A member of the RNA family "Small nucleolar RNA SNORA77" from Carassius auratus, 131 nucleotides long. NCBI's taxonomy places the organism under Eukaryota, Chordata, Craniata, Cyprinoidei, Carassius. For this family Rfam cites "A computational screen for mammalian pseudouridylation guide H/ACA RNAs" (Schattner et al., RNA, 2006). From the family's description: ACA63 (SNORA77) is a member of the H/ACA class of snoRNAs that guide the sites of modification of uridines to pseudouridines. This snoRNA was identified by computational screening and its expression in mouse experimentally verified by Northern blot and primer extension analysis. ACA63 is proposed to guide the pseudouridylation of 18S rRNA U814.
[Rfam]
RNA sequence: GCAGACACACUCUGUUUAAGACUGACACAUCCAGCCUUAGACUUUUAAUGUCUGCAACAGAAACAGGAAGAGCAUUACAAAACUGCCUUGCCAUUCAUUUGGGAGGCGACUGUAUCUUUUCAGACAUUUUU
Numbered sequence: 001g002c003a004g005a006c007a008c009a010c011u012c013u014g015u016u017u018a019a020g021a022c023u024g025a026c027a028c029a030u031c032c033a034g035c036c037u038u039a040g041a042c043u044u045u046u047a048a049u050g051u052c053u054g055c056a057a058c059a060g061a062a063a064c065a066g067g068a069a070g071a072g073c074a075u076u077a078c079a080a081a082a083c084u085g086c087c088u089u090g091c092c093a094u095u096c097a098u099u100u101g102g103g104a105g106g107c108g109a110c111u112g113u114a115u116c117u118u119u120u121c122a123g124a125c126a127u128u129u130u131u
Base pairs, nucleotide, nucleotide: 001055002054003053004052005051006050014042015041016040017039018038019037020036022034023033024032067121068120069119070118071117072116076114077113078112079111084108085107086106087105088104